[Rfam]
RNA sequence: UGCAAGUAUUUUACAAUUAAGAAACAACUGCUUUUUGUAAGAUUGUGUAUGAAAAU
Numbered sequence: 001u002g003c004a005a006g007u008a009u010u011u012u013a014c015a016a017u018u019a020a021g022a023a024a025c026a027a028c029u030g031c032u033u034u035u036u037g038u039a040a041g042a043u044u045g046u047g048u049a050u051g052a053a054a055a056u
Stems, first nucleotide, its partner, number of pairs: 018037006025030001
The family of this 56-nucleotide RNA sequence from Cannabis sativa is "Plastid-rps18 3UTR RNA".
A search with the family's covariance model found it, with a score of 60 bits.
About the family: Plastid rps18 is a non-coding RNA (ncRNA) present in plastids. It was identified as a short stem-loop motif in the 3 prime untranslate region (3UTR) of rps18 gene.
The family has 238 seed sequences and 1,462 matches in Rfam 15.1.
The source organism's lineage runs through Eukaryota, Streptophytina, Spermatophyta, Rosales and Cannabis.